[Rfam]
RNA sequence: CCUUCGAAGUUUCCCUCAGGAUAGCUGGAGCCACACUCGGAGUUCUAUCGGGUAAAGCCAAUGAUUAGAGGCAUCGGGGGCACAAUGCCCUCGACCUAUUCUCAAACUUUAAAUAAGUAGGAGGGCUCGACUGCUUUGAUGAGUUGAGCCAAGGAAUCCAGGCUCCAAGUGGGCCAUUUUGGUAAGCAGAAUCGGCGAUGCGGGAUGAACCGAAGUCGGGUUCUGCGGUCCAAUCAUAAGGCUAACCUAGAGCCCACAAAGGUGUUGGUCGAUUAAGACAGCAGACGGGUGGGUCAUGGAAGUUGAACCGCUUGGCGAGUGUAACAACUCACCCGCCGAAUCAACUAGCCCUAAAAAUGGAUGGCGCUUAAGCGCGACACCCACACCCGGCCGUCGGUGCAAUGCAAGGCCCCGACGAGUAGGGAGGGUGCAACUGCAUUUGCGCAAACGGGCGUGAGGCGUGGAGCGCGAGCUGGUGCGGAU
Numbered sequence: 001c002c003u004u005c006g007a008a009g010u011u012u013c014c015c016u017c018a019g020g021a022u023a024g025c026u027g028g029a030g031c032c033a034c035a036c037u038c039g040g041a042g043u044u045c046u047a048u049c050g051g052g053u054a055a056a057g058c059c060a061a062u063g064a065u066u067a068g069a070g071g072c073a074u075c076g077g078g079g080g081c082a083c084a085a086u087g088c089c090c091u092c093g094a095c096c097u098a099u100u101c102u103c104a105a106a107c108u109u110u111a112a113a114u115a116a117g118u119a120g121g122a123g124g125g126c127u128c129g130a131c132u133g134c135u136u137u138g139a140u141g142a143g144u145u146g147a148g149c150c151a152a153g154g155a156a157u158c159c160a161g162g163c164u165c166c167a168a169g170u171g172g173g174c175c176a177u178u179u180u181g182g183u184a185a186g187c188a189g190a191a192u193c194g195g196c197g198a199u200g201c202g203g204g205a206u207g208a209a210c211c212g213a214a215g216u217c218g219g220g221u222u223c224u225g226c227g228g229u230c231c232a233a234u235c236a237u238a239a240g241g242c243u244a245a246c247c248u249a250g251a252g253c254c255c256a257c258a259a260a261g262g263u264g265u266u267g268g269u270c271g272a273u274u275a276a277g278a279c280a281g282c283a284g285a286c287g288g289g290u291g292g293g294u295c296a297u298g299g300a301a302g303u304u305g306a307a308c309c310g311c312u313u314g315g316c317g318a319g320u321g322u323a324a325c326a327a328c329u330c331a332c333c334c335g336c337c338g339a340a341u342c343a344a345c346u347a348g349c350c351c352u353a354a355a356a357a358u359g360g361a362u363g364g365c366g367c368u369u370a371a372g373c374g375c376g377a378c379a380c381c382c383a384c385a386c387c388c389g390g391c392c393g394u395c396g397g398u399g400c401a402a403u404g405c406a407a408g409g410c411c412c413c414g415a416c417g418a419g420u421a422g423g424g425a426g427g428g429u430g431c432a433a434c435u436g437c438a439u440u441u442g443c444g445c446a447a448a449c450g451g452g453c454g455u456g457a458g459g460c461g462u463g464g465a466g467c468g469c470g471a472g473c474u475g476g477u478g479c480g481g482a483u
Stems, first nucleotide, its partner, number of pairs: 001428005010023001012021003026167007043122006055110001056108002062104003067099001069097003074094006081087001124150009173196003176192006201212003215391005221385001225381001237377001241373002260352003264349006271342003281336002284333001288309002294306002315330001319328002392417006399410002429478001431475002434472002436467002444462002451460001453458001
The record is a 483-nucleotide part of an RNA from Vanilla planifolia, which matches "Eukaryotic large subunit ribosomal RNA" in Rfam. Pairs were carried over by alignment from the consensus structure, which is taken from published work. The organism belongs to Vanilla, within Eukaryota.